Shown here is an 85-nucleotide RNA sequence from Novimethylophilus kurashikiensis, a member of the family "c-di-GMP-I riboswitch aptamer". Rfam describes the family as follows. GEMM was predicted in a large-scale screen for bacterial structured RNA regulatory elements. The organism belongs to Novimethylophilus, within Bacteria. It scores 78 bits against the family's covariance model.
[Rfam]
RNA sequence: GAAUCAUAAGGGCAAACCCAUCGAAAGAUGGGGACGCAAAGUCUCCGGUCUAAGGAAGUUUUUCUACGAUAGCGGGACCGCCGGC
Numbered sequence: 001g002a003a004u005c006a007u008a009a010g011g012g013c014a015a016a017c018c019c020a021u022c023g024a025a026a027g028a029u030g031g032g033g034a035c036g037c038a039a040a041g042u043c044u045c046c047g048g049u050c051u052a053a054g055g056a057a058g059u060u061u062u063u064c065u066a067c068g069a070u071a072g073c074g075g076g077a078c079c080g081c082c083g084g085c
Stems, first nucleotide, its partner, number of pairs: 012037002017032006041078003045075003048070003055064003